[Rfam]
Nucleotides: 106
Stems, first nucleotide, its partner, number of pairs: 010093003015088002018085002021082005027076004031071006039063004044058003
Number, partner (000 for none) and nucleotide at each position: 001000g002000c003000a004000c005000g006000c007000g008000a009000g010093u011092g012091c013000u014000g015088c016087g017000a018085g019084g020000c021082c022081u023080c024079u025078g026000c027076c028075c029074g030073g031071g032070c033069g034068u035067g036066g037000a038000c039063c040062c041061u042060g043000a044058c045057g046056u047000a048000c049000u050000u051000c052000c053000c054000c055000g056046a057045c058044g059000c060042c061041a062040g063039g064000u065000g066036c067035c068034g069033c070032g071031c072000c073030c074029c075028g076027g077000u078025c079024a080023g081022a082021g083000a084019c085018c086000u087016c088015g089000a090000c091012g092011c093010a094000u095000u096000c097000g098000c099000a100000c101000u102000c103000a104000u105000c106000c
Shown here is a 106-nucleotide RNA from Nocardia ignorata, a member of the family "mraW RNA". The family's consensus secondary structure is taken from published work. Taxonomically the source falls in Nocardia (Bacteria, Actinomycetes, Mycobacteriales, Nocardiaceae).